[Rfam]
A member of the RNA family "MIR5225 microRNA precursor family" from Glycine max, 113 nucleotides long. It is one of the family's seed sequences. The organism belongs to Glycine subgen. Soja, within Eukaryota. The family has 6 seed sequences and 63 matches in Rfam 15.1.

RNA sequence: UUUAGGGACUCCUGUCGUAGGAGAGAUGACGCCUUCUGUUAGGUAAUUAAUAUGUUGCAAAGCCAACUUGAAUUAGCAGUAGCUGUCAUCUUUCCUCGGCUGAAGCCCCUUCA
Numbered sequence: 001u002u003u004a005g006g007g008a009c010u011c012c013u014g015u016c017g018u019a020g021g022a023g024a025g026a027u028g029a030c031g032c033c034u035u036c037u038g039u040u041a042g043g044u045a046a047u048u049a050a051u052a053u054g055u056u057g058c059a060a061a062g063c064c065a066a067c068u069u070g071a072a073u074u075a076g077c078a079g080u081a082g083c084u085g086u087c088a089u090c091u092u093u094c095c096u097c098g099g100c101u102g103a104a105g106c107c108c109c110u111u112c113a
Stems, first nucleotide, its partner, number of pairs: 005108003009105002012102001014100004019096003023092007